About this RNA:
Shown here is a 107-nucleotide sequence from Vigna angularis, a member of the family "Plastid-psbA-1 3UTR RNA". A search with the family's covariance model found it, with a score of 76 bits. Rfam's curators write: Plastid psbA-1 is a non-coding RNA (ncRNA) present in plastids.
[Rfam]
RNA sequence: UGGAAGCUCCAUCUGUUAAUGGAUAAAAUUUUGAUCUUAAAUUAAAGUAGACGAGUUUUUGUUUGAAAAUAAAGGAGCAAUAUUAACAAAGUUGAUAUUGCUCCUUU
Numbered sequence: 001u002g003g004a005a006g007c008u009c010c011a012u013c014u015g016u017u018a019a020u021g022g023a024u025a026a027a028a029u030u031u032u033g034a035u036c037u038u039a040a041a042u043u044a045a046a047g048u049a050g051a052c053g054a055g056u057u058u059u060u061g062u063u064u065g066a067a068a069a070u071a072a073a074g075g076a077g078c079a080a081u082a083u084u085a086a087c088a089a090a091g092u093u094g095a096u097a098u099u100g101c102u103c104c105u106u107u
Stems, first nucleotide, its partner, number of pairs: 008023005071107013085093003
Notes:
Pairs were carried over by alignment from the consensus structure, which was predicted with LocARNA. The family's RNA type in Rfam is cis-regulatory element.